[Rfam]
The family of this 133-nucleotide sequence from Microcebus murinus is "Small nucleolar RNA SNORA42/SNORA80 family". On this family, see Schattner et al., RNA 2006: "A computational screen for mammalian pseudouridylation guide H/ACA RNAs".

RNA sequence: UCAUGGGUUUGGAUUCCUGAGAGGCCCGUACCCCCUGGGUCUCUCAUAGUGCCCCAUGCUAUAGCAAACUGGCCCCAAACCAUUGCCUGGCCUCUGCCUGUAGGCUGCUGGCACUGAAGUGGGUCACAUAGUG
Numbered sequence: 001u002c003a004u005g006g007g008u009u010u011g012g013a014u015u016c017c018u019g020a021g022a023g024g025c026c027c028g029u030a031c032c033c034c035c036u037g038g039g040u041c042u043c044u045c046a047u048a049g050u051g052c053c054c055c056a057u058g059c060u061a062u063a064g065c066a067a068a069c070u071g072g073c074c075c076c077a078a079a080c081c082a083u084u085g086c087c088u089g090g091c092c093u094c095u096g097c098c099u100g101u102a103g104g105c106u107g108c109u110g111g112c113a114c115u116g117a118a119g120u121g122g123g124u125c126a127c128a129u130a131g132u133g
Base pairs, nucleotide, nucleotide: 002058003057004056005054006053007052008051015049018046019045020044022042023041024040025038026037070126071125072124073123074122075121081116082115086111087110088107089106090105091104092103093102

The match comes from Rfam's covariance-model search (120 bits). Rfam describes the family as follows. The members of this family belong to the H/ACA class of snoRNAs that guide the sites of modification of uridines to pseudouridines. Human ACA42 (SNORA42) was cloned from HeLa cells by immunoprecipitation with anti-GAR1 antibody.